RNA sequence: UUGGCGGUUAGGAACCAGGUUAUGCCGGUGUGUAAUUUGGGCCGACAUCCCCGCCGAAAUUGUACUUGAGGGAUUAAGGUCGCAUUCGAUUAGAUGAGCUACCGGGUGCAUACCUCCGUCACGAACAUUU
Numbered sequence: 001u002u003g004g005c006g007g008u009u010a011g012g013a014a015c016c017a018g019g020u021u022a023u024g025c026c027g028g029u030g031u032g033u034a035a036u037u038u039g040g041g042c043c044g045a046c047a048u049c050c051c052c053g054c055c056g057a058a059a060u061u062g063u064a065c066u067u068g069a070g071g072g073a074u075u076a077a078g079g080u081c082g083c084a085u086u087c088g089a090u091u092a093g094a095u096g097a098g099c100u101a102c103c104g105g106g107u108g109c110a111u112a113c114c115u116c117c118g119u120c121a122c123g124a125a126c127a128u129u130u
Stems, first nucleotide, its partner, number of pairs: 003055005011043002015040011067121003071117003078114003082109002085106004091101003
Dot-bracket structure: ..(((((...((..(((((((((((....))))))))))).)).......)))))...........(((.(((....(((.((.((((..(((.....))).)))).))..)))))).))).........
Nematode snoRNA ceN39: a 130-nucleotide RNA from Caenorhabditis bovis. The literature on the family includes a 2007 paper in BMC Mol Biol by Jia et al., "Systematic identification of non-coding RNA 2,2,7-trimethylguanosine cap structures in Caenorhabditis elegans". A search with the family's covariance model found it, with a score of 112 bits.